The record is a 79-nucleotide sequence from Serilophus lunatus, which matches "Small nucleolar RNA SNORD111" in Rfam. The match comes from Rfam's covariance-model search (58 bits).

RNA sequence: UAGCCUGAAGUGAUGAGCUUGGUUCAUGUCUCUUCUCUGAGAUUUACCUGGAGAUAUUUCAAAGACUCUGAUCAGGCAG
Numbered sequence: 001u002a003g004c005c006u007g008a009a010g011u012g013a014u015g016a017g018c019u020u021g022g023u024u025c026a027u028g029u030c031u032c033u034u035c036u037c038u039g040a041g042a043u044u045u046a047c048c049u050g051g052a053g054a055u056a057u058u059u060c061a062a063a064g065a066c067u068c069u070g071a072u073c074a075g076g077c078a079g
Stems, first nucleotide, its partner, number of pairs: 001079001003077003
Dot-bracket structure: (.(((.....................................................................))).)
The family has 5 seed sequences and 894 matches in Rfam 15.1. It is annotated as a C/D-box small nucleolar RNA.